Rfam assigns this 61-nucleotide sequence from Cereibacter ovatus to the family "Glycine riboswitch aptamer".
Its family is annotated with glycine biosynthetic process in the Gene Ontology.
The source organism's lineage runs through Bacteria, Pseudomonadati, Pseudomonadota, Alphaproteobacteria and Cereibacter.
RNA sequence: CUCUGGAGAGUGGCCGGUCGGCCCGCCGAAGGGAUAACGAUCUCAGGCGCAAGGGACAGAG
Numbered sequence: 001c002u003c004u005g006g007a008g009a010g011u012g013g014c015c016g017g018u019c020g021g022c023c024c025g026c027c028g029a030a031g032g033g034a035u036a037a038c039g040a041u042c043u044c045a046g047g048c049g050c051a052a053g054g055g056a057c058a059g060a061g
Stems, first nucleotide, its partner, number of pairs: 001061005012023004025048003028044002032042002